[Rfam]
RNA: DUF805 RNA
RNA sequence: GAAAAGUGGAGGCCAGCACCCACUGAAAAAAACGGGGCGCUAUCCGAAAAGCCUUAUGAGUAGGAAACAA
Number, nucleotide and partner (000 for none) at each position: 001g000002a000003a000004a000005a000006g023007u022008g021009g020010a000011g000012g000013c000014c000015a000016g000017c000018a000019c000020c009021c008022a007023c006024u000025g000026a000027a000028a000029a000030a000031a000032a000033c000034g000035g000036g053037g052038c051039g000040c000041u000042a000043u064044c063045c000046g000047a000048a000049a000050a000051g038052c037053c036054u000055u000056a000057u000058g000059a000060g000061u000062a000063g044064g043065a000066a000067a000068c000069a000070a000